[Rfam]
RNA: Glycine riboswitch aptamer
RNA sequence: CAAAUCGAAGCGGGAGAGUCCGUGCCAGCCAGGUGACGGACGCCGUAGGAGCAACUCCUCCCCGGGAAUCUCUCAGGCACACGUACCGUUUCGACCAG
Dot-bracket structure: .....((((((((.....((((..............)))).((((...(((...((.......))....))).).))).......)))))))).....